[Rfam]
RNA sequence: AGAGUGUUAUGAUGUUGGAAGUAAAUUCCGAGUCUAGCUCAGCGCCGCCCCUUAGUUUAUACUAAGGGG
Numbered sequence: 001a002g003a004g005u006g007u008u009a010u011g012a013u014g015u016u017g018g019a020a021g022u023a024a025a026u027u028c029c030g031a032g033u034c035u036a037g038c039u040c041a042g043c044g045c046c047g048c049c050c051c052u053u054a055g056u057u058u059a060u061a062c063u064a065a066g067g068g069g
Stems, first nucleotide, its partner, number of pairs: 002040004011034003017029004048069009
This 69-nucleotide RNA from Enterococcus dispar belongs to the Rfam family "L17 ribosomal protein downstream element". Pairs were carried over by alignment from the consensus structure, which is taken from published work. The family's RNA type in Rfam is cis-regulatory element. NCBI's taxonomy places the organism under Bacteria, Bacillati, Bacillota, Enterococcus, Enterococcus dispar.